[Rfam]
RNA sequence: AAACGUAAUUUUUGUUCCCGAAAGGAUUUGCUUAAUUGCAAAGAUGCCUUGUAACCGUAUUUAAUUAAGGGGGAAAUUUUCAAG
Numbered sequence: 001a002a003a004c005g006u007a008a009u010u011u012u013u014g015u016u017c018c019c020g021a022a023a024g025g026a027u028u029u030g031c032u033u034a035a036u037u038g039c040a041a042a043g044a045u046g047c048c049u050u051g052u053a054a055c056c057g058u059a060u061u062u063a064a065u066u067a068a069g070g071g072g073g074a075a076a077u078u079u080u081c082a083a084g
Base pairs, nucleotide, nucleotide: 015075016074017073018072019071022050023049024048025047027042028041029040030039031038055070056069
Annotation:
A member of the RNA family "SAM-III riboswitch aptamer (SMK box)" from Pediococcus cellicola, 84 nucleotides long. NCBI's taxonomy places the organism under Bacteria, Bacillota, Bacilli, Lactobacillaceae, Pediococcus. It scores 70 bits against the family's covariance model. For this family Rfam cites "S-adenosylmethionine directly inhibits binding of 30S ribosomal subunits to the SMK box translational riboswitch RNA" (Fuchs et al., Proc Natl Acad Sci U S A, 2007).